A member of the RNA family "c-di-AMP riboswitch aptamer (ydaO/yuaA leader)" from Tolypothrix tenuis, 144 nucleotides long.

RNA sequence: AGAGUAAGUCAGCCUAAUCUAGUGUAUUACAGUAUGUGACACUAGAGCGGAGGAACCAAAUUAUGGGGCGUAUCUCCUACAGGAGAGGGGCAUCUCUCAGCCCUAGCCCGUCAGCUAACUUCGUAGGCAAUGAGAGGAGACUGA
Numbered sequence: 001a002g003a004g005u006a007a008g009u010c011a012g013c014c015u016a017a018u019c020u021a022g023u024g025u026a027u028u029a030c031a032g033u034a035u036g037u038g039a040c041a042c043u044a045g046a047g048c049g050g051a052g053g054a055a056c057c058a059a060a061u062u063a064u065g066g067g068g069c070g071u072a073u074c075u076c077c078u079a080c081a082g083g084a085g086a087g088g089g090g091c092a093u094c095u096c097u098c099a100g101c102c103c104u105a106g107c108c109c110g111u112c113a114g115c116u117a118a119c120u121u122c123g124u125a126g127g128c129a130a131u132g133a134g135a136g137g138a139g140a141c142u143g144a
Stems, first nucleotide, its partner, number of pairs: 012128003018046008047124006057065002066109003074085004088103004

Record summary
Its family is annotated with regulation of gene expression and cyclic-di-AMP binding in the Gene Ontology.